[Rfam]
Nucleotides: 259
Base pairs, nucleotide, nucleotide: 002259003258004257005256006255007254008253009252010251011250014217015216016215017214018213019212022056023055024054025053032047033046034045035044036043037042061245062244063243065242066241067240068239081092082091083090084089093108094107095106096105097104098103135182136181138175139174140173148170149169150168151167158163219229220228221227222226
Number, partner (000 for none) and nucleotide at each position: 001000u002259g003258a004257c005256c006255a007254c008253g009252a010251g011250a012000u013000g014217u015216u016215g017214u018213g019212a020000u021000c022056g023055g024054g025053u026000u027000a028000a029000g030000u031000g032047u033046u034045g035044g036043g037042c038000u039000u040000u041000u042037g043036c044035c045034u046033g047032a048000u049000c050000c051000a052000a053025a054024c055023c056022c057000a058000g059000g060000a061245a062244a063243g064000u065242c066241c067240c068239c069000g070000g071000g072000c073000c074000g075000u076000u077000a078000u079000u080000a081092u082091g083090c084089a085000g086000a087000g088000a089084u090083g091082c092081a093108g094107g095106c096105u097104u098103g099000g100000a101000a102000a103098c104097a105096a106095g107094u108093c109000a110000a111000c112000c113000u114000u115000u116000g117000a118000g119000a120000g121000c122000g123000c124000g125000a126000g127000u128000c129000c130000a131000a132000c133000u134000u135182g136181c137000a138175u139174u140173c141000g142000u143000g144000c145000a146000a147000u148170g149169g150168g151167c152000u153000g154000a155000g156000a157000c158163a159000u160000g161000u162000g163158u164000g165000g166000a167151g168150c169149c170148c171000a172000u173140g174139g175138g176000c177000u178000a179000g180000c181136g182135c183000c184000a185000a186000g187000u188000c189000g190000g191000a192000u193000u194000g195000g196000c197000c198000g199000a200000a201000u202000a203000u204000a205000c206000a207000g208000u209000u210000a211000u212019u213018c214017a215016c216015a217014a218000g219229g220228c221227c222226c223000a224000u225000u226222g227221g228220g229219c230000u231000a232000a233000c234000u235000g236000a237000a238000c239068g240067g241066g242065g243063c244062u245061u246000a247000c248000g249000a250011u251010c252009u253008u254007g255006u256005g257004g258003u259002c
The record is a 259-nucleotide RNA sequence from Actinidia chinensis, which matches "RNase MRP" in Rfam.
Pairs were carried over by alignment from the consensus structure, which is taken from published work.
A search with the family's covariance model found it, with a score of 82 bits.
Gene Ontology terms of the family: ribonuclease MRP activity, rRNA processing and ribonuclease MRP complex.
NCBI's taxonomy places the organism under Eukaryota, Streptophyta, Magnoliopsida, Actinidia, Actinidia chinensis.
It is annotated as a ribozyme.
The family is grouped with related families in Rfam's "RNaseP clan".